[Rfam]
RNA sequence: GUUUACACUGAGUGGCCAGAUUAUUAUGCAUUCAGAGAUCAUAAUAAUCUGGCUACUCAGUGUAUAA
Number, nucleotide and partner (000 for none) at each position: 001g000002u000003u000004u064005a063006c062007a061008c060009u059010g058011a057012g056013u055014g054015g053016c052017c051018a000019g049020a048021u047022u046023a045024u044025u043026a042027u041028g040029c000030a000031u000032u000033c000034a000035g000036a000037g000038a000039u000040c028041a027042u026043a025044a024045u023046a022047a021048u020049c019050u000051g017052g016053c015054u014055a013056c012057u011058c010059a009060g008061u007062g006063u005064a004065u000066a000067a000